[Rfam]
RNA sequence: AGCCAUGCAGUGAGCACAGAGCAAACUAUUCUUUCGCCUUUUACAAAAGAAUACCGUGUGCUCGCUGCAUUCAGUGGCAUACGUUUAUUUUUGAAGGAGUUCCAUAUAGGACCUU
Numbered sequence: 001a002g003c004c005a006u007g008c009a010g011u012g013a014g015c016a017c018a019g020a021g022c023a024a025a026c027u028a029u030u031c032u033u034u035c036g037c038c039u040u041u042u043a044c045a046a047a048a049g050a051a052u053a054c055c056g057u058g059u060g061c062u063c064g065c066u067g068c069a070u071u072c073a074g075u076g077g078c079a080u081a082c083g084u085u086u087a088u089u090u091u092u093g094a095a096g097g098a099g100u101u102c103c104a105u106a107u108a109g110g111a112c113c114u115u
Stems, first nucleotide, its partner, number of pairs: 003077004008067011027053008097115003101111002